[Rfam]
The record is a 71-nucleotide sequence from Glaucidium brasilianum, which matches "mir-124 microRNA precursor family" in Rfam. The family's consensus secondary structure was predicted with PFOLD. For this family Rfam cites "Computational identification of Drosophila microRNA genes" (Lai et al., Genome Biol, 2003). Rfam links the family to the GO terms RISC complex and miRNA-mediated post-transcriptional gene silencing.
RNA sequence: AGCGUUUUGUGUUCGCCGCGGACCUUGAUUUCAUGUCACACAGUUAAGGCACGUGGUGAAUGCCAAAGGGG
Number, nucleotide and partner (000 for none) at each position: 001a000002g000003c069004g000005u067006u066007u000008u000009g063010u062011g061012u060013u059014c058015g057016c056017c000018g054019c053020g052021g000022a000023c049024c048025u047026u046027g045028a044029u043030u042031u000032c000033a000034u000035g000036u000037c000038a000039c000040a000041c000042a030043g029044u028045u027046a026047a025048g024049g023050c000051a000052c020053g019054u018055g000056g016057u015058g014059a013060a012061u011062g010063c009064c000065a000066a006067a005068g000069g003070g000071g000